[Rfam]
RNA sequence: GCUCUCUCAGCUCUGCUCAGUUGUGUCUGUCUGAAAUGGUGCAACUGUCGUUAAUGGAGAGAGAAAGGAAAUGAGUUUAAUAUGCACGGCAGUGGGACCUCACAACAUGGUCUCCCUGCUCCUUUUCAAACUCAACACUU
Numbered sequence: 001g002c003u004c005u006c007u008c009a010g011c012u013c014u015g016c017u018c019a020g021u022u023g024u025g026u027c028u029g030u031c032u033g034a035a036a037u038g039g040u041g042c043a044a045c046u047g048u049c050g051u052u053a054a055u056g057g058a059g060a061g062a063g064a065a066a067g068g069a070a071a072u073g074a075g076u077u078u079a080a081u082a083u084g085c086a087c088g089g090c091a092g093u094g095g096g097a098c099c100u101c102a103c104a105a106c107a108u109g110g111u112c113u114c115c116c117u118g119c120u121c122c123u124u125u126u127c128a129a130a131c132u133c134a135a136c137a138c139u140u
Stems, first nucleotide, its partner, number of pairs: 002067002005064004011059005019046008076130003080126001082123001084121001091117002095113005
The family of this 140-nucleotide RNA from Crocodylus porosus is "Small nucleolar RNA SNORA64/SNORA10 family".
A reference for the family is Narayanan et al. (1999), "Nucleolar localization signals of box H/ACA small nucleolar RNAs", EMBO J.
The family's consensus secondary structure is taken from published work.
It scores 43 bits against the family's covariance model.
Its Rfam clan is "SNORA64 clan".
This family belongs to the H/ACA class of small nucleolar RNAs (snoRNAs) which act as guides in the the modification of uridines to pseudouridines. This family includes the human snoRNAs U64 and ACA10 and mouse MBI-29.